Overview
Rfam assigns this 112-nucleotide RNA sequence from Paenibacillus ginsengarvi to the family "pan motif". NCBI's taxonomy places the organism under Bacteria, Bacillati, Bacillota, Caryophanales, Paenibacillus. It is annotated as a cis-regulatory element.
RNA sequence: GAGGCGGUAUCCUACCCGGAACUGCACUCGCUGCUUAUCGAUAUAUCGUUUGUUAAUGUAAUCAGGCAAGACCGUAAUUCUGCUCUGAGCCCAAAAGGACCGAGACGGAAAA
Numbered sequence: 001g002a003g004g005c006g007g008u009a010u011c012c013u014a015c016c017c018g019g020a021a022c023u024g025c026a027c028u029c030g031c032u033g034c035u036u037a038u039c040g041a042u043a044u045a046u047c048g049u050u051u052g053u054u055a056a057u058g059u060a061a062u063c064a065g066g067c068a069a070g071a072c073c074g075u076a077a078u079u080c081u082g083c084u085c086u087g088a089g090c091c092c093a094a095a096a097g098g099a100c101c102g103a104g105a106c107g108g109a110a111a112a
Stems, first nucleotide, its partner, number of pairs: 001029003004025005010020002080108003083104003087100001090098002